[Rfam]
RNA sequence: UAUCCUGAGCUUGGGUGAGGCUAUCCGCUGAAUUUAAGCAUAUAACUAAGCGGCAGAAGAGAAAAUAACCAUGAUUCCCUCAGUAACGGCGAGUGAAGCGGGAAGAGUCCAAAGUGCAAACCGGGGCCCGGCCUCGGCUUGUGGCCUUGAGCGGCGCAGCCAGUGGCGCCGGCCGGCUAAGUUUCUUGGAACAGGACGUCGCGGAGGGUGAGAGCCCCGUCUGAGCCGGCCGGAGCGUCCACGCGUCGGUUCGCCUGCAUAGAGUCGCGCUUUUUGGGAUUGAAGCGCCAAGUGUGAGGUAGACUUCUCAUAAGACUAAAUACCAGUGUGAGACCGAUAGCGAACAAGUACCGCGAGGGAAAGGUGAAAAGCACUCUGGCAAGAGGGUUAAAAGUGCCUGAAAUUGCUGGAAGGGAAG
Numbered sequence: 001u002a003u004c005c006u007g008a009g010c011u012u013g014g015g016u017g018a019g020g021c022u023a024u025c026c027g028c029u030g031a032a033u034u035u036a037a038g039c040a041u042a043u044a045a046c047u048a049a050g051c052g053g054c055a056g057a058a059g060a061g062a063a064a065a066u067a068a069c070c071a072u073g074a075u076u077c078c079c080u081c082a083g084u085a086a087c088g089g090c091g092a093g094u095g096a097a098g099c100g101g102g103a104a105g106a107g108u109c110c111a112a113a114g115u116g117c118a119a120a121c122c123g124g125g126g127c128c129c130g131g132c133c134u135c136g137g138c139u140u141g142u143g144g145c146c147u148u149g150a151g152c153g154g155c156g157c158a159g160c161c162a163g164u165g166g167c168g169c170c171g172g173c174c175g176g177c178u179a180a181g182u183u184u185c186u187u188g189g190a191a192c193a194g195g196a197c198g199u200c201g202c203g204g205a206g207g208g209u210g211a212g213a214g215c216c217c218c219g220u221c222u223g224a225g226c227c228g229g230c231c232g233g234a235g236c237g238u239c240c241a242c243g244c245g246u247c248g249g250u251u252c253g254c255c256u257g258c259a260u261a262g263a264g265u266c267g268c269g270c271u272u273u274u275u276g277g278g279a280u281u282g283a284a285g286c287g288c289c290a291a292g293u294g295u296g297a298g299g300u301a302g303a304c305u306u307c308u309c310a311u312a313a314g315a316c317u318a319a320a321u322a323c324c325a326g327u328g329u330g331a332g333a334c335c336g337a338u339a340g341c342g343a344a345c346a347a348g349u350a351c352c353g354c355g356a357g358g359g360a361a362a363g364g365u366g367a368a369a370a371g372c373a374c375u376c377u378g379g380c381a382a383g384a385g386g387g388u389u390a391a392a393a394g395u396g397c398c399u400g401a402a403a404u405u406g407c408u409g410g411a412a413g414g415g416a417a418g
Base pairs, nucleotide, nucleotide: 024055025053026052027051028050029049035042036041065072066071076103077102078101079100086094087093106317107316108315109314115143116142117141118140119139121137122136123135124134125133126132127131151258152257153255154254155253156252158251159250160249161248163242164241165240166239168236169235171231172230173229174228175227176226177225181197183196184195185194186193200204207217208216267288268287269286270285271284272283273282294311295310296309297308298307351358352357374385375384376383377382

The record is a 418-nucleotide part of an RNA from Babesia ovis, which matches "Eukaryotic large subunit ribosomal RNA" in Rfam. Lineage of the source: Eukaryota > Sar > Aconoidasida > Babesiidae > Babesia.